RNA sequence: CUGUGGUACAAUACCUCAGUCUUAUCAGGUGUUAAUUAAAAUCACCUGGAAAUGCUGAGGUUGCGUUUCACUG
Numbered sequence: 001c002u003g004u005g006g007u008a009c010a011a012u013a014c015c016u017c018a019g020u021c022u023u024a025u026c027a028g029g030u031g032u033u034a035a036u037u038a039a040a041a042u043c044a045c046c047u048g049g050a051a052a053u054g055c056u057g058a059g060g061u062u063g064c065g066u067u068u069c070a071c072u073g
Stems, first nucleotide, its partner, number of pairs: 003071004008066002013061008022052002025049007

Rfam assigns this 73-nucleotide RNA from Monodelphis domestica to the family "mir-875 microRNA precursor family". It is one of the family's seed sequences. Gene Ontology terms of the family: RISC complex and miRNA-mediated post-transcriptional gene silencing. A reference for the family is Murchison et al. (2008), "Conservation of small RNA pathways in platypus", Genome Res. The family's consensus secondary structure was predicted with RNAalifold.